Shown here is a 61-nucleotide RNA sequence from Lichenibacterium minor, a member of the family "Fluoride riboswitch aptamer (crcB RNA motif)".
The base pairs follow the family's consensus structure, which is taken from published work.
The match comes from Rfam's covariance-model search (55 bits).
RNA sequence: CUAUCAUACCGGGAUGGAGUUCCCGUUUAACCGCCUCGUGGCUGAUGACUCCUGCUUAGAC
Numbered sequence: 001c002u003a004u005c006a007u008a009c010c011g012g013g014a015u016g017g018a019g020u021u022c023c024c025g026u027u028u029a030a031c032c033g034c035c036u037c038g039u040g041g042c043u044g045a046u047g048a049c050u051c052c053u054g055c056u057u058a059g060a061c
Stems, first nucleotide, its partner, number of pairs: 010025004016052006033042003